[Rfam]
RNA: TPP riboswitch aptamer (THI element)
Organism: Rothia aerolata
RNA sequence: GCGUUACCCACGGGGUGCUGGUUUGGUAUAAACCGGCUGAGAACACACCCGUAUAUACCUGAUCUCGAUAAUGCGAGCGGAGGAAUGGAUAUGACGCUCUCU
Numbered sequence: 001g002c003g004u005u006a007c008c009c010a011c012g013g014g015g016u017g018c019u020g021g022u023u024u025g026g027u028a029u030a031a032a033c034c035g036g037c038u039g040a041g042a043a044c045a046c047a048c049c050c051g052u053a054u055a056u057a058c059c060u061g062a063u064c065u066c067g068a069u070a071a072u073g074c075g076a077g078c079g080g081a082g083g084a085a086u087g088g089a090u091a092u093g094a095c096g097c098u099c100u101c102u
Stems, first nucleotide, its partner, number of pairs: 006090001008088003011051004016045001017037008058083003064077004